[Rfam]
RNA sequence: UGGUGAUGUCUCCUUGCCAUUAUCUAUGGCGGCACUCGGCCAUGCUGUGGGUCUUAAAAAAACUUAAAUGCUAGUCAUCAAAAGUGUGGUGUGAGGAAGGGUUAGAUGCCCA
Numbered sequence: 001u002g003g004u005g006a007u008g009u010c011u012c013c014u015u016g017c018c019a020u021u022a023u024c025u026a027u028g029g030c031g032g033c034a035c036u037c038g039g040c041c042a043u044g045c046u047g048u049g050g051g052u053c054u055u056a057a058a059a060a061a062a063c064u065u066a067a068a069u070g071c072u073a074g075u076c077a078u079c080a081a082a083a084g085u086g087u088g089g090u091g092u093g094a095g096g097a098a099g100g101g102u103u104a105g106a107u108g109c110c111c112a
Base pairs, nucleotide, nucleotide: 001019002018003017004016007034008033009032010031012029013028035095036094037093038092039090040089041088042087043086044085045084046083049064050063052061054059068078069077070076099111100110101109102108
Record summary
epsC RNA: a 112-nucleotide RNA from Halalkalibacter nanhaiisediminis. The family's RNA type in Rfam is cis-regulatory element.